mir-86 microRNA precursor family: an 81-nucleotide RNA sequence from Diploscapter pachys. Gene Ontology terms of the family: RISC complex and miRNA-mediated post-transcriptional gene silencing. The match comes from Rfam's covariance-model search (70 bits). For this family Rfam cites "An abundant class of tiny RNAs with probable regulatory roles in Caenorhabditis elegans" (Lau et al., Science, 2001). Rfam 15.1 lists 60 matches to the family in 60 species.
RNA sequence: CCGCCGGCUAAGUGAAUGCUUUUGCCACAGUCUUAGAGUCGGACCCGAAUAAGCUGGGCUAAGAUUCACUUAGGCUGGAGA
Numbered sequence: 001c002c003g004c005c006g007g008c009u010a011a012g013u014g015a016a017u018g019c020u021u022u023u024g025c026c027a028c029a030g031u032c033u034u035a036g037a038g039u040c041g042g043a044c045c046c047g048a049a050u051a052a053g054c055u056g057g058g059c060u061a062a063g064a065u066u067c068a069c070u071u072a073g074g075c076u077g078g079a080g081a
Base pairs, nucleotide, nucleotide: 004078005077006076009072010071011070012069013068014067015066016065017064019063020062021061024059025058026057028056029055030054